[Rfam]
RNA sequence: UGACCCAUCAGAGUGACUGUGAAAUGUUGGUUAAUUUCAUAUCACAGCCAGCUUUGAUGAGCUCAG
Numbered sequence: 001u002g003a004c005c006c007a008u009c010a011g012a013g014u015g016a017c018u019g020u021g022a023a024a025u026g027u028u029g030g031u032u033a034a035u036u037u038c039a040u041a042u043c044a045c046a047g048c049c050a051g052c053u054u055u056g057a058u059g060a061g062c063u064c065a066g
Stems, first nucleotide, its partner, number of pairs: 006059008014050002017047006025041003
This 66-nucleotide RNA from Mytilus galloprovincialis belongs to the Rfam family "mir-2 microRNA precursor family". Taxonomically the source falls in Mytilus (Eukaryota, Eumetazoa, Lophotrochozoa, Autobranchia). Rfam links the family to the GO terms RISC complex and miRNA-mediated post-transcriptional gene silencing.